[Rfam]
RNA sequence: AACUCCAUUCGUAUGAAUAAAGAGAAGUAGAUUUACUCUAUACUCAAUAAGUACCAAUAUGCAAUGGGU
Numbered sequence: 001a002a003c004u005c006c007a008u009u010c011g012u013a014u015g016a017a018u019a020a021a022g023a024g025a026a027g028u029a030g031a032u033u034u035a036c037u038c039u040a041u042a043c044u045c046a047a048u049a050a051g052u053a054c055c056a057a058u059a060u061g062c063a064a065u066g067g068g069u
Stems, first nucleotide, its partner, number of pairs: 003022002007018004043068003051060003
RNA: Plastid-clpP 5UTR RNA
Organism: Olea europaea